Notes: The record is a 92-nucleotide RNA from Carlito syrichta, which matches "Small nucleolar RNA SNORD116" in Rfam. On this family, see Cavaille et al., Proc Natl Acad Sci U S A 2000: "Identification of brain-specific and imprinted small nucleolar RNA genes exhibiting an unusual genomic organization". The source organism's lineage runs through Eukaryota, Metazoa, Craniata, Euteleostomi and Carlito. Pairs were carried over by alignment from the consensus structure, which was predicted with PFOLD. Its family is annotated with RNA processing and nucleolus in the Gene Ontology.
RNA sequence: GGAUCGAUGAUGACUUAAAAAUGGAUCUCACUGGAAUCUGAACAAAAUGAGUGACCAAGCCAUUUCUGUGCCACUUCUGUGAGCUGAGGUCC
Numbered sequence: 001g002g003a004u005c006g007a008u009g010a011u012g013a014c015u016u017a018a019a020a021a022u023g024g025a026u027c028u029c030a031c032u033g034g035a036a037u038c039u040g041a042a043c044a045a046a047a048u049g050a051g052u053g054a055c056c057a058a059g060c061c062a063u064u065u066c067u068g069u070g071c072c073a074c075u076u077c078u079g080u081g082a083g084c085u086g087a088g089g090u091c092c
Base pairs, nucleotide, nucleotide: 001092002091003090004089005088027051028050029049032044033043